The family of this 133-nucleotide RNA sequence from Danio rerio is "Small nucleolar RNA SNORA14".
Rfam describes the family as follows. ACA14 is a member of the H/ACA class of snoRNA that guide the sites of modification of uridines to pseudouridines.
Rfam 15.1 lists 848 matches to the family in 633 species.

[Rfam]
RNA sequence: CCGCACUGUUUUAAACCCCCCACGAGCUGCCUGUCGCUUUUGGGACAAGAAAAAGUGCAAGAGAAAAAUCAAGAAUUAUCCAAAGCUGAACGUCUGUGCAGUGACCUUCAGCUAUUUCACCUCUUGAACAUUA
Numbered sequence: 001c002c003g004c005a006c007u008g009u010u011u012u013a014a015a016c017c018c019c020c021c022a023c024g025a026g027c028u029g030c031c032u033g034u035c036g037c038u039u040u041u042g043g044g045a046c047a048a049g050a051a052a053a054a055g056u057g058c059a060a061g062a063g064a065a066a067a068a069u070c071a072a073g074a075a076u077u078a079u080c081c082a083a084a085g086c087u088g089a090a091c092g093u094c095u096g097u098g099c100a101g102u103g104a105c106c107u108u109c110a111g112c113u114a115u116u117u118c119a120c121c122u123c124u125u126g127a128a129c130a131u132u133a
Base pairs, nucleotide, nucleotide: 003058004057005056006055009051010050011049012048019044020043021042022041025038026037027036063132064131069127070126071125072124073123074122084113085112086111087110088109089108090107092105093104